[Rfam]
Nucleotides: 073
Base pairs, nucleotide, nucleotide: 001072002071003070004069005068006067007066010025011024012023013022027043028042029041030040031039049065051063052062053061
Number, partner (000 for none) and nucleotide at each position: 001072g002071u003070g004069u005068c006067g007066g008000u009000a010025g011024u012023u013022c014000a015000a016000c017000g018000g019000c020000c021000a022013g023012a024011a025010c026000c027043c028042c029041g030040g031039g032000u033000u034000g035000u036000g037000a038000u039031u040030c041029c042028g043027g044000u045000a046000g047000c048000g049065g050000c051063g052062g053061g054000u055000u056000c057000g058000a059000u060000u061053c062052c063051c064000c065049c066007c067006u068005g069004a070003c071002a072001c073000c
Overview:
Rfam assigns this 73-nucleotide RNA sequence from Variovorax sp. PBS-H4 to the family "tRNA". By type it is a transfer RNA.